The record is a 77-nucleotide sequence from Capitella teleta, which matches "mir-9/mir-79 microRNA precursor family" in Rfam.
Nucleotides: 077
Stems, first nucleotide, its partner, number of pairs: 001077002005073001007071002011067007019059001021057006028050005
Number, partner (000 for none) and nucleotide at each position: 001077c002076c003000u004000g005073u006000u007071u008070u009000a010000g011067c012066u013065u014064u015063g016062g017061u018000a019059a020000c021057c022056u023055a024054g025053c026052u027000u028050u029049a030048u031047g032046a033000a034000g035000u036000a037000a038000a039000a040000u041000a042000u043000a044000a045000a046032u047031c048030a049029u050028a051000c052026a053025g054024c055023u056022a057021g058000a059019u060000a061017a062016c063015c064014a065013a066012a067011g068000a069000g070008a071007a072000a073005a074000a075000u076002g077001g